[Rfam]
RNA: Molybdenum/Tungsten riboswitch aptamer (Moco RNA motif)
Organism: Dehalogenimonas alkenigignens
RNA sequence: UUAAAUAUUGAUCUCCGAAGUCUUGGAGCCUAACUCCUCGGUGAUAUGGCGACAAGACCGGCGGUCCUUCACAGAAGGACCCGAGGGUGAUGCCGGAAACGGCGCCGCCUCCCGCGAUUUGGAAAGGAGAGCAUGCCAUGACGAG
Numbered sequence: 001u002u003a004a005a006u007a008u009u010g011a012u013c014u015c016c017g018a019a020g021u022c023u024u025g026g027a028g029c030c031u032a033a034c035u036c037c038u039c040g041g042u043g044a045u046a047u048g049g050c051g052a053c054a055a056g057a058c059c060g061g062c063g064g065u066c067c068u069u070c071a072c073a074g075a076a077g078g079a080c081c082c083g084a085g086g087g088u089g090a091u092g093c094c095g096g097a098a099a100c101g102g103c104g105c106c107g108c109c110u111c112c113c114g115c116g117a118u119u120u121g122g123a124a125a126g127g128a129g130a131g132c133a134u135g136c137c138a139u140g141a142c143g144a145g
Stems, first nucleotide, its partner, number of pairs: 003139001012130005020058006028050003035044002063082002067078003085110005091104005111122002